Source information: Rfam assigns this 61-nucleotide sequence to the family "S15-Halobacteria ribosomal protein leader". The family's consensus secondary structure is taken from published work.
[Rfam]
RNA sequence: GUGGGAACAGUAUAGCCGCAAAUCUGACUCGCGUGUGGUGCGCUUGGGAUUGCGGUAGUGC
Dot-bracket structure: .........((((.(((((((..((.....(((((...)))))...)).))))))).))))
The family's RNA type in Rfam is cis-regulatory leader.